[Rfam]
RNA sequence: GCGAGACGGGUGGGCCGGUGGCCGAGCGCGACCGAUAAACUGUUCCACGGACGGCCGGGCGCAGCCCCGCGUCGUCCGCCCAUGAUCAGCCAGCAGCCGCUGCAACCCCAGGGAG
Numbered sequence: 001g002c003g004a005g006a007c008g009g010g011u012g013g014g015c016c017g018g019u020g021g022c023c024g025a026g027c028g029c030g031a032c033c034g035a036u037a038a039a040c041u042g043u044u045c046c047a048c049g050g051a052c053g054g055c056c057g058g059g060c061g062c063a064g065c066c067c068c069g070c071g072u073c074g075u076c077c078g079c080c081c082a083u084g085a086u087c088a089g090c091c092a093g094c095a096g097c098c099g100c101u102g103c104a105a106c107c108c109c110a111g112g113g114a115g
Base pairs, nucleotide, nucleotide: 049077050076051075052074053073054072056071057070058068059067091102092101093100094099
The record is a 115-nucleotide RNA sequence from Streptomyces sp. e14, which matches "Streptomyces-metK RNA" in Rfam. Rfam's curators put it in the seed alignment. The organism belongs to Streptomyces, within Bacteria.